[Rfam]
RNA sequence: CUCAGGGGGUGGUCCCUCAGCCUGGAUUACGAGAGGGUGCAGGACAGGCUAAGGGACUCCACCAGUGCA
Numbered sequence: 001c002u003c004a005g006g007g008g009g010u011g012g013u014c015c016c017u018c019a020g021c022c023u024g025g026a027u028u029a030c031g032a033g034a035g036g037g038u039g040c041a042g043g044a045c046a047g048g049c050u051a052a053g054g055g056a057c058u059c060c061a062c063c064a065g066u067g068c069a
Base pairs, nucleotide, nucleotide: 003067004066006063007062009060011058012057013056014055015054016053017052019050020049021048022047024045027042028041030039031038
Overview: The family of this 69-nucleotide RNA sequence from Cnephaeus nilssonii is "mir-9193 microRNA precursor family". The base pairs follow the family's consensus structure, which was predicted with RNAalifold. Rfam 15.1 lists 6,008 matches to the family in 8 species. NCBI's taxonomy places the organism under Eukaryota, Bilateria, Euteleostomi, Eutheria, Cnephaeus.